Rfam assigns this 443-nucleotide part of an RNA from Nanohaloarchaea archaeon H01 to the family "Archaeal large subunit ribosomal RNA". The base pairs follow the family's consensus structure, which is taken from published work. The literature on the family includes a 2001 paper in Science by Yusupov et al., "Crystal structure of the ribosome at 5.5 A resolution". A search with the family's covariance model found it, with a score of 2594 bits.
[Rfam]
RNA sequence: CUUCUCGAAAUAGAUCGAAGUCUAGCCUCAGGCGAGACGGCUCACGAGGUAAAGCCACUGAUUCUGGGUUCCUGAGCUCGCGCUCAGGUCCGGAGUCAAACUCUGAACUCUUGAGCAUUGUAGACCCUGGGAGCGAGGGGCGGUGCGUAAGGUACCGUUCCGAGAGGGAAACAACCCAGAGCAAGGUUAAGGCCCCUAAUUCCUGACUAAGUGCCUGUUGAAGGGAGUCACGGUUCUCAGACAGCGGGGAGGUUAGCUUAGAAGCAGCUACCCUUUAAAGAUAGCGUAACAGCUCACCCGUUGAGAGCUGUGGCACCUAAAAUGGACGGGGCUCAAGUCAGGAGCCGAGACCUUGCCAUCGACAUUCGUCGAUGGAUAGAGAAGCGAUCCGCGUGGACAGAAGCAUGGCCGUGAGGUCGUGUGGACCGCGUGGAUACGAAAAU
Numbered sequence: 001c002u003u004c005u006c007g008a009a010a011u012a013g014a015u016c017g018a019a020g021u022c023u024a025g026c027c028u029c030a031g032g033c034g035a036g037a038c039g040g041c042u043c044a045c046g047a048g049g050u051a052a053a054g055c056c057a058c059u060g061a062u063u064c065u066g067g068g069u070u071c072c073u074g075a076g077c078u079c080g081c082g083c084u085c086a087g088g089u090c091c092g093g094a095g096u097c098a099a100a101c102u103c104u105g106a107a108c109u110c111u112u113g114a115g116c117a118u119u120g121u122a123g124a125c126c127c128u129g130g131g132a133g134c135g136a137g138g139g140g141c142g143g144u145g146c147g148u149a150a151g152g153u154a155c156c157g158u159u160c161c162g163a164g165a166g167g168g169a170a171a172c173a174a175c176c177c178a179g180a181g182c183a184a185g186g187u188u189a190a191g192g193c194c195c196c197u198a199a200u201u202c203c204u205g206a207c208u209a210a211g212u213g214c215c216u217g218u219u220g221a222a223g224g225g226a227g228u229c230a231c232g233g234u235u236c237u238c239a240g241a242c243a244g245c246g247g248g249g250a251g252g253u254u255a256g257c258u259u260a261g262a263a264g265c266a267g268c269u270a271c272c273c274u275u276u277a278a279a280g281a282u283a284g285c286g287u288a289a290c291a292g293c294u295c296a297c298c299c300g301u302u303g304a305g306a307g308c309u310g311u312g313g314c315a316c317c318u319a320a321a322a323u324g325g326a327c328g329g330g331g332c333u334c335a336a337g338u339c340a341g342g343a344g345c346c347g348a349g350a351c352c353u354u355g356c357c358a359u360c361g362a363c364a365u366u367c368g369u370c371g372a373u374g375g376a377u378a379g380a381g382a383a384g385c386g387a388u389c390c391g392c393g394u395g396g397a398c399a400g401a402a403g404c405a406u407g408g409c410c411g412u413g414a415g416g417u418c419g420u421g422u423g424g425a426c427c428g429c430g431u432g433g434a435u436a437c438g439a440a441a442a443u
Base pairs, nucleotide, nucleotide: 001384002383003382004381005380006379011024012023013022014021015020026133027131028130029129030128031127032126036119037118040116041115042114043113044112046110047109052104053102054101060097061096062095063094064093065092066091067090068089069088073086074085075084076083077082137161138160139159140158141157142156143155144154145153166177167176168175181356182355183354184353185352186351187350191346192345193344200343202342203341204340205339206338207337223317224316227314228313229312230311231310232309233308234307235306236305244301245300246299247298248297250274251273252272255269256268257267275279280295284293285292357374358373359372360371361370362369363368385438387435388434389433390432391431392430393429394428395427396426403422404421405420406419407418408417409416410415